RNA sequence: UCGUGAGUCGUUGCUGGCCUUUGGUCGCAACGGCGAGCCUCGCGUCGUUCAGGAUGAAUGGCGCGGGGUUUCACUAGAAAAAAGGAA
Numbered sequence: 001u002c003g004u005g006a007g008u009c010g011u012u013g014c015u016g017g018c019c020u021u022u023g024g025u026c027g028c029a030a031c032g033g034c035g036a037g038c039c040u041c042g043c044g045u046c047g048u049u050c051a052g053g054a055u056g057a058a059u060g061g062c063g064c065g066g067g068g069u070u071u072c073a074c075u076a077g078a079a080a081a082a083a084g085g086a087a
Base pairs, nucleotide, nucleotide: 007034008033009032010031011030012029013028014027018024019023035071036070037069038068039067040066041065042064043063044062045061046060047059048058049057050056
Dot-bracket structure: ......((((((((...((...))..))))))))((((((((((((((((.....))))))))))))))))................
Rfam assigns this 87-nucleotide RNA sequence from Pseudomonas benzenivorans to the family "gyrA RNA". By type it is a cis-regulatory element. A search with the family's covariance model found it, with a score of 73 bits.